Rfam assigns this 52-nucleotide RNA sequence from Massilia sp. KIM to the family "Guanidine-II riboswitch aptamer (mini-ykkC)".
RNA sequence: GCAGAAGGACGACCUUCCCCUCGUCGAGGGUAUCCGUUCCGGGACGGCCCGG
Numbered sequence: 001g002c003a004g005a006a007g008g009a010c011g012a013c014c015u016u017c018c019c020c021u022c023g024u025c026g027a028g029g030g031u032a033u034c035c036g037u038u039c040c041g042g043g044a045c046g047g048c049c050c051g052g
Stems, first nucleotide, its partner, number of pairs: 001020001004017005039052005

Notes:
For this family Rfam cites "The Structure of the Guanidine-II Riboswitch" (Huang et al., Cell Chem Biol, 2017). Rfam links the family to the GO term regulation of gene expression. The base pairs follow the family's consensus structure, which is taken from published work.